Shown here is an 86-nucleotide RNA sequence from Mikania micrantha, a member of the family "mir-160 microRNA precursor family". It scores 65 bits against the family's covariance model. The family has 7 seed sequences and 1,502 matches in Rfam 15.1. For this family Rfam cites "Prediction of plant microRNA targets" (Rhoades et al., Cell, 2002). The source organism's lineage runs through Eukaryota, Embryophyta, Tracheophyta, Eupatorieae and Mikania. The family's consensus secondary structure was predicted with PFOLD. Gene Ontology terms of the family: miRNA-mediated post-transcriptional gene silencing and RISC complex.
[Rfam]
RNA sequence: AUAUGCCUGGCUCCCUGUAUGCCAUUUGUAGGUCUCCUCGACAGAUCGAUGGCUUCUGUGGAUGGCGUAUGAGGAUCCAAGCAUAU
Numbered sequence: 001a002u003a004u005g006c007c008u009g010g011c012u013c014c015c016u017g018u019a020u021g022c023c024a025u026u027u028g029u030a031g032g033u034c035u036c037c038u039c040g041a042c043a044g045a046u047c048g049a050u051g052g053c054u055u056c057u058g059u060g061g062a063u064g065g066c067g068u069a070u071g072a073g074g075a076u077c078c079a080a081g082c083a084u085a086u
Stems, first nucleotide, its partner, number of pairs: 001086006008079003012075003016071009027060003